[Rfam]
RNA sequence: UUAUAGGACGUAUUGGCUAUUGAACUGUUUUGUCCCUCUCUAUCUUAGAACAAAAUUUUGUUCUUUGACAGACAGGGACAAAACAGUUCAAUAGCUAAAACACCCUAUAAA
Numbered sequence: 001u002u003a004u005a006g007g008a009c010g011u012a013u014u015g016g017c018u019a020u021u022g023a024a025c026u027g028u029u030u031u032g033u034c035c036c037u038c039u040c041u042a043u044c045u046u047a048g049a050a051c052a053a054a055a056u057u058u059u060g061u062u063c064u065u066u067g068a069c070a071g072a073c074a075g076g077g078a079c080a081a082a083a084c085a086g087u088u089c090a091a092u093a094g095c096u097a098a099a100a101c102a103c104c105c106u107a108u109a110a111a
Base pairs, nucleotide, nucleotide: 001110002109003108004107005106006105011100013098014097015096016095017094018093019092020091021090022089023088024087025086026085027084028083029072030071031070032069033068034067049062050061051060052059

Rfam assigns this 111-nucleotide RNA from Plutella xylostella to the family "mir-8517 microRNA precursor family". Pairs were carried over by alignment from the consensus structure, which was predicted with RNAalifold. Lineage of the source: Eukaryota > Pancrustacea > Altocrustacea > Plutellidae > Plutella.